Shown here is a 77-nucleotide RNA from Ancylomarina longa, a member of the family "Flavo-1 RNA".
[Rfam]
RNA sequence: CUAUUGCGUGAGGGAUAGAAGCGGCAUCCUUUUGCGAAGGAACGUAGCAAAAGAUAUAGCGGAUAGCCCGACCUAUA
Numbered sequence: 001c002u003a004u005u006g007c008g009u010g011a012g013g014g015a016u017a018g019a020a021g022c023g024g025c026a027u028c029c030u031u032u033u034g035c036g037a038a039g040g041a042a043c044g045u046a047g048c049a050a051a052a053g054a055u056a057u058a059g060c061g062g063a064u065a066g067c068c069c070g071a072c073c074u075a076u077a
Stems, first nucleotide, its partner, number of pairs: 012069003016065002021060002026055003032050004037045001039043001
Rfam classes the family as a small RNA.